[Rfam]
The family of this 74-nucleotide RNA from Ophiophagus hannah is "Small nucleolar RNA SNORD19". The pairing is the family consensus, mapped onto this sequence. On this family, see Huttenhofer et al., EMBO J 2001: "RNomics: an experimental approach that identifies 201 candidates for novel, small, non-messenger RNAs in mouse". By type it is a C/D-box small nucleolar RNA. Its family is annotated with RNA processing and nucleolus in the Gene Ontology.
RNA sequence: AAGAAAUGAGGAUAUUUGCUAUGUCAUACUGUUACGGUGAUGACAUCAGAUCCAACUCUGAUCUUGCUGUACCC
Numbered sequence: 001a002a003g004a005a006a007u008g009a010g011g012a013u014a015u016u017u018g019c020u021a022u023g024u025c026a027u028a029c030u031g032u033u034a035c036g037g038u039g040a041u042g043a044c045a046u047c048a049g050a051u052c053c054a055a056c057u058c059u060g061a062u063c064u065u066g067c068u069g070u071a072c073c074c
Stems, first nucleotide, its partner, number of pairs: 001065004
Lineage of the source: Eukaryota > Deuterostomia > Teleostomi > Sauropsida > Ophiophagus.